[Rfam]
RNA sequence: AAACGGGCAUCGUAAGUCCUGGGAUCGUUGGGCCUCCGUAGGAGGCGCCCACUCCGGUUACGGACCGGUGGUUAUCGGCACCCAGGGAGGGCCCGUUU
Numbered sequence: 001a002a003a004c005g006g007g008c009a010u011c012g013u014a015a016g017u018c019c020u021g022g023g024a025u026c027g028u029u030g031g032g033c034c035u036c037c038g039u040a041g042g043a044g045g046c047g048c049c050c051a052c053u054c055c056g057g058u059u060a061c062g063g064a065c066c067g068g069u070g071g072u073u074a075u076c077g078g079c080a081c082c083c084a085g086g087g088a089g090g091g092c093c094c095g096u097u098u
Stems, first nucleotide, its partner, number of pairs: 001098007010090002018086005027079002033045005054068005